Shown here is a 295-nucleotide RNA, a member of the family "Soft rot Enterobacteriaceae Rev 39 5'UTR".

[Rfam]
RNA sequence: UCUUGUGUCAUAUGAAAUAUCUGUGGUAACUCUUUAGGUAUUCCUUCGAACAAGAUGCAAAAAGAACUGAAAAUGACAGCCCUUCUACUAGUGAUUAGCCUGGUCGUGAUUAGCGUGGUGGUGAUUAUUAUCCCACCGUGCGGGGCUGCACUUGGACGAGGAAAGGCUUAAGAAUCAAGCCUUAACGAACUAAGACCCCCGCACCGAAAGGUCCGGGGGUUUUUUUAUGACUAAAAAACUUAAAUGAGGAGCAGAGAAUGACCACUAGCACAAAAUUCUGUUUCUCCAGAUUUAU
Numbered sequence: 001u002c003u004u005g006u007g008u009c010a011u012a013u014g015a016a017a018u019a020u021c022u023g024u025g026g027u028a029a030c031u032c033u034u035u036a037g038g039u040a041u042u043c044c045u046u047c048g049a050a051c052a053a054g055a056u057g058c059a060a061a062a063a064g065a066a067c068u069g070a071a072a073a074u075g076a077c078a079g080c081c082c083u084u085c086u087a088c089u090a091g092u093g094a095u096u097a098g099c100c101u102g103g104u105c106g107u108g109a110u111u112a113g114c115g116u117g118g119u120g121g122u123g124a125u126u127a128u129u130a131u132c133c134c135a136c137c138g139u140g141c142g143g144g145g146c147u148g149c150a151c152u153u154g155g156a157c158g159a160g161g162a163a164a165g166g167c168u169u170a171a172g173a174a175u176c177a178a179g180c181c182u183u184a185a186c187g188a189a190c191u192a193a194g195a196c197c198c199c200c201g202c203a204c205c206g207a208a209a210g211g212u213c214c215g216g217g218g219g220u221u222u223u224u225u226u227a228u229g230a231c232u233a234a235a236a237a238a239c240u241u242a243a244a245u246g247a248g249g250a251g252c253a254g255a256g257a258a259u260g261a262c263c264a265c266u267a268g269c270a271c272a273a274a275a276u277u278c279u280g281u282u283u284c285u286c287c288a289g290a291u292u293u294a295u
Stems, first nucleotide, its partner, number of pairs: 005030001006028006014021002034071002037068003041063002045059001046055002081249003087245001089242002095234003099229001101227003105115003117137005123132003138157002141154004160186001165182002168179002192223010203212003250282007259270002
From bacteria cultured under starvation conditions. The literature on the family includes a 2016 paper in BMC Genomics by Kwenda et al., "Discovery and profiling of small RNAs responsive to stress conditions in the plant pathogen Pectobacterium atrosepticum".